[Rfam]
RNA sequence: AGUAACGAGCACCGGUGACAAGCCCUGACUGACCGGUCGGCAACCCUCCAGACGCGGCGGGGUGCCUCAGGUGACUACUCGGCAUGUGUCAACUGCAAGCGCGAAGG
Number, nucleotide and partner (000 for none) at each position: 001a079002g078003u077004a076005a000006c000007g000008a000009g038010c000011a037012c036013c035014g034015g033016u032017g000018a000019c000020a000021a030022g029023c000024c000025c000026u000027g000028a000029c022030u021031g000032a016033c015034c014035g013036g012037u011038c009039g066040g065041c064042a000043a000044c062045c061046c060047u000048c057049c056050a000051g000052a000053c000054g000055c000056g049057g048058c000059g000060g046061g045062g044063u000064g041065c040066c039067u000068c000069a000070g000071g000072u000073g000074a000075c000076u004077a003078c002079u001080c000081g000082g096083c095084a094085u000086g000087u091088g000089u000090c000091a087092a000093c000094u084095g083096c082097a000098a000099g000100c000101g000102c000103g000104a000105a000106g000107g000